[Rfam]
RNA: Fluoride riboswitch aptamer (crcB RNA motif)
Nucleotides: 070
Base pairs, nucleotide, nucleotide: 010026011025012024013023016061017060018059019058020057021056037051038050039049040048
Number, partner (000 for none) and nucleotide at each position: 001000u002000a003000a004000a005000u006000a007000a008000a009000a010026g011025g012024g013023a014000a015000u016061g017060a018059a019058g020057u021056u022000c023013u024012c025011c026010c027000u028000u029000g030000g031000c032000a033000a034000c035000a036000a037051g038050c039049c040048g041000a042000a043000a044000c045000g046000a047000a048040u049039g050038g051037c052000u053000g054000a055000u056021g057020a058019c059018u060017u061016c062000u063000a064000c065000a066000a067000c068000a069000a070000a